[Rfam]
RNA sequence: CGAGUCGUCAAAGGGGUUGUGAAAUGUUCAUUGUAAGCAAAUCCAUAUCACAGCCAGCUUUGAUGAUUUUGA
Numbered sequence: 001c002g003a004g005u006c007g008u009c010a011a012a013g014g015g016g017u018u019g020u021g022a023a024a025u026g027u028u029c030a031u032u033g034u035a036a037g038c039a040a041a042u043c044c045a046u047a048u049c050a051c052a053g054c055c056a057g058c059u060u061u062g063a064u065g066a067u068u069u070u071g072a
Stems, first nucleotide, its partner, number of pairs: 005066009015055008025047003
Dot-bracket structure: ....(((((((((.((((((((..(((.................)))))))))))..)))))))))......